[Rfam]
RNA sequence: UAUAAUUCUCAGGGCGGGGCGCAAUUCCCCACCGGCGGUAAACUUGAAAAAGUGAGCCCGCGAGCGCUCGAUUCGUCGAGGUCAGCAGAUCUGGUGACUUAGGUUUUACUCAUGAGUAAUGCCUAACAGUCCAGAGCCGACGGUUACAGUCCGGAUGAGAGAGAAUAGAG
Number, nucleotide and partner (000 for none) at each position: 001u000002a000003u168004a000005a166006u165007u164008c163009u162010c161011a000012g000013g000014g000015c000016g000017g029018g028019g027020c000021g000022c000023a000024a000025u000026u000027c019028c018029c017030c000031a150032c149033c139034g138035g061036c060037g059038g058039u000040a000041a000042a000043c000044u000045u000046g000047a000048a000049a000050a000051a000052g000053u000054g000055a000056g137057c136058c038059c037060g036061c035062g000063a000064g086065c085066g000067c000068u000069c000070g000071a000072u000073u000074c000075g000076u000077c000078g000079a000080g000081g000082u000083c000084a000085g065086c064087a000088g000089a000090u135091c134092u133093g132094g131095u000096g000097a000098c000099u000100u000101a000102g000103g000104u000105u000106u000107u000108a000109c000110u000111c000112a000113u000114g000115a000116g000117u000118a000119a000120u000121g000122c000123c000124u000125a000126a000127c000128a000129g000130u000131c094132c093133a092134g091135a090136g057137c056138c034139g033140a000141c153142g152143g151144u000145u000146a000147c000148a000149g032150u031151c143152c142153g141154g000155a000156u000157g000158a000159g000160a000161g010162a009163g008164a007165a006166u005167a000168g003169a000170g000
Notes: A member of the RNA family "FMN riboswitch aptamer (RFN element)" from Shewanella frigidimarina, 170 nucleotides long. The organism belongs to Shewanella frigidimarina, within Bacteria. It scores 107 bits against the family's covariance model.